[Rfam]
RNA sequence: AGCGCGACCGGGUCGACCGCGCGGGUGGCGGUCAGGUAGUCGCGGAUGACGAUGCCGUGCCGGUUCUC
Numbered sequence: 001a002g003c004g005c006g007a008c009c010g011g012g013u014c015g016a017c018c019g020c021g022c023g024g025g026u027g028g029c030g031g032u033c034a035g036g037u038a039g040u041c042g043c044g045g046a047u048g049a050c051g052a053u054g055c056c057g058u059g060c061c062g063g064u065u066c067u068c
Stems, first nucleotide, its partner, number of pairs: 005062002008059001012029002016026003035056004040052003